[Rfam]
RNA sequence: AUGAUGGAAAUGAGAGUUGGAUGAAACUAAAUUUGCAGGUAUAAAAUGAACUCAACUCGAUAAAUUUGGUUUCCUCCAACGUCUCAUGUCCAGCGA
Numbered sequence: 001a002u003g004a005u006g007g008a009a010a011u012g013a014g015a016g017u018u019g020g021a022u023g024a025a026a027c028u029a030a031a032u033u034u035g036c037a038g039g040u041a042u043a044a045a046a047u048g049a050a051c052u053c054a055a056c057u058c059g060a061u062a063a064a065u066u067u068g069g070u071u072u073c074c075u076c077c078a079a080c081g082u083c084u085c086a087u088g089u090c091c092a093g094c095g096a
Stems, first nucleotide, its partner, number of pairs: 005092004011086004016080006023073008032064002
MIR2275 microRNA precursor family: a 96-nucleotide RNA from Papaver somniferum. The organism belongs to Papaver, within Eukaryota. Rfam 15.1 lists 785 matches to the family in 111 species.